[Rfam]
A member of the RNA family "Glutamine-II riboswitch aptamer" from Prochlorococcus marinus, 62 nucleotides long. The source organism's lineage runs through Bacteria, Bacillati, Cyanobacteriota, Cyanophyceae and Prochlorococcus marinus. A reference for the family is Huang et al. (2019), "Structure and ligand binding of the glutamine-II riboswitch", Nucleic Acids Res.
RNA sequence: UUACGUUCAUCCUAAUUGAAUUUACGGACGCAUGACAUGGAAAUAGGGAACGGGAUUUCCAU
Numbered sequence: 001u002u003a004c005g006u007u008c009a010u011c012c013u014a015a016u017u018g019a020a021u022u023u024a025c026g027g028a029c030g031c032a033u034g035a036c037a038u039g040g041a042a043a044u045a046g047g048g049a050a051c052g053g054g055a056u057u058u059c060c061a062u
Stems, first nucleotide, its partner, number of pairs: 004052005010028003013024003037062008